[Rfam]
RNA sequence: UGGUCGGGAGGGUGCCGGUGGGACGGCACCUGUGAAUAGACCGAAACGUAUCGUCUCGUAUGGGCGAGGUGCCGUGGCCCGACGGCUCCCUCG
Numbered sequence: 001u002g003g004u005c006g007g008g009a010g011g012g013u014g015c016c017g018g019u020g021g022g023a024c025g026g027c028a029c030c031u032g033u034g035a036a037u038a039g040a041c042c043g044a045a046a047c048g049u050a051u052c053g054u055c056u057c058g059u060a061u062g063g064g065c066g067a068g069g070u071g072c073c074g075u076g077g078c079c080c081g082a083c084g085g086c087u088c089c090c091u092c093g
Stems, first nucleotide, its partner, number of pairs: 001043005010031008065093005071086004
Rhodo-rpoB RNA: a 93-nucleotide RNA from Roseobacter insulae. A search with the family's covariance model found it, with a score of 84 bits.